[Rfam]
RNA sequence: AUUUAGCUUUAGGGGUAUUCUGAAAAGAAUUGAGAGAGUCCCUUAGAACCUGAUUCGGUUGAUACCGACGUAGGGAAAAGUAAAUUAGGUCAG
Numbered sequence: 001a002u003u004u005a006g007c008u009u010u011a012g013g014g015g016u017a018u019u020c021u022g023a024a025a026a027g028a029a030u031u032g033a034g035a036g037a038g039u040c041c042c043u044u045a046g047a048a049c050c051u052g053a054u055u056c057g058g059u060u061g062a063u064a065c066c067g068a069c070g071u072a073g074g075g076a077a078a079a080g081u082a083a084a085u086u087a088g089g090u091c092a093g
Base pairs, nucleotide, nucleotide: 006081007080008079009078010077011043012042013041014040016037017030018029019028020027021026049074050073051072052071055068056067057066058065
Dot-bracket structure: .....(((((((((.((((((....)))))......)..)))).....((((..((((......))))..))))..)))))............

Rfam assigns this 93-nucleotide RNA sequence from Rhizosphaericola mali to the family "TPP riboswitch aptamer (THI element)". Lineage of the source: Bacteria > Bacteroidota > Chitinophagia > Chitinophagaceae > Rhizosphaericola. About the family: Vitamin B(1) in its active form thiamin pyrophosphate (TPP) is an essential coenzyme that is synthesised by coupling of pyrimidine and thiazole moieties in bacteria. It scores 76 bits against the family's covariance model.